[Rfam]
RNA sequence: UGUUUGAAUGUGAGAAUUGGAUGAAACCAAACCCUUUUAACAUCUGGUGGUAGAAGAGAUUUUGGUUUCCUCCAAUAUCUCACUUUCAACAC
Numbered sequence: 001u002g003u004u005u006g007a008a009u010g011u012g013a014g015a016a017u018u019g020g021a022u023g024a025a026a027c028c029a030a031a032c033c034c035u036u037u038u039a040a041c042a043u044c045u046g047g048u049g050g051u052a053g054a055a056g057a058g059a060u061u062u063u064g065g066u067u068u069c070c071u072c073c074a075a076u077a078u079c080u081c082a083c084u085u086u087c088a089a090c091a092c
Stems, first nucleotide, its partner, number of pairs: 004089005011082004016076006023069008

Record summary: This 92-nucleotide sequence from Coptis chinensis belongs to the Rfam family "MIR2275 microRNA precursor family". Lineage of the source: Eukaryota > Euphyllophyta > Spermatophyta > Mesangiospermae > Coptis. Rfam 15.1 lists 785 matches to the family in 111 species. Pairs were carried over by alignment from the consensus structure, which was predicted with RNAalifold.